[Rfam]
RNA: mir-71 microRNA precursor family
Organism: Laodelphax striatellus
RNA sequence: UCCUUGUGAAAGACAUGGGUAGUGAGAUGCUGUACAGUUGUGCGCCGAUUCAUCUCACUACCUUGUCUUUCAUGUGGCC
Numbered sequence: 001u002c003c004u005u006g007u008g009a010a011a012g013a014c015a016u017g018g019g020u021a022g023u024g025a026g027a028u029g030c031u032g033u034a035c036a037g038u039u040g041u042g043c044g045c046c047g048a049u050u051c052a053u054c055u056c057a058c059u060a061c062c063u064u065g066u067c068u069u070u071c072a073u074g075u076g077g078c079c
Stems, first nucleotide, its partner, number of pairs: 008071008017063003021059009